Rfam assigns this 258-nucleotide part of an RNA from Methanomassiliicoccales archaeon RumEn M2 to the family "Archaeal large subunit ribosomal RNA".
RNA sequence: GAGUUCUGGUCAUUGGCGAGGUUAACCACUUGAAGUGGGAAGCCACAGGGAAACCAAUUGUCCGCAGUUUUUAACGAGGGACAAGGUGUGCUCGCCUGGAGUCAAUGGCGCGGAUACCCGAAGCCGGUCGAUCUACGCCUGAGCAGAUUGAAGCCUCCUGAAAGGGAGGUGGAGGAUCGAACCAGUACUGAUGUGCAAAUCGUUUGGAUGACUUGGGUGUAGGGGUGAAAGGCCAAUCUAGGCCGGAAAUAGCUGGUU
Numbered sequence: 001g002a003g004u005u006c007u008g009g010u011c012a013u014u015g016g017c018g019a020g021g022u023u024a025a026c027c028a029c030u031u032g033a034a035g036u037g038g039g040a041a042g043c044c045a046c047a048g049g050g051a052a053a054c055c056a057a058u059u060g061u062c063c064g065c066a067g068u069u070u071u072u073a074a075c076g077a078g079g080g081a082c083a084a085g086g087u088g089u090g091c092u093c094g095c096c097u098g099g100a101g102u103c104a105a106u107g108g109c110g111c112g113g114a115u116a117c118c119c120g121a122a123g124c125c126g127g128u129c130g131a132u133c134u135a136c137g138c139c140u141g142a143g144c145a146g147a148u149u150g151a152a153g154c155c156u157c158c159u160g161a162a163a164g165g166g167a168g169g170u171g172g173a174g175g176a177u178c179g180a181a182c183c184a185g186u187a188c189u190g191a192u193g194u195g196c197a198a199a200u201c202g203u204u205u206g207g208a209u210g211a212c213u214u215g216g217g218u219g220u221a222g223g224g225g226u227g228a229a230a231g232g233c234c235a236a237u238c239u240a241g242g243c244c245g246g247a248a249a250u251a252g253c254u255g256g257u258u
Stems, first nucleotide, its partner, number of pairs: 005114004009109009020044004026038004048055002060082004067075003085096004117256002120253001124246006133222011144210001146178004153170007182207004187203002190201002224234003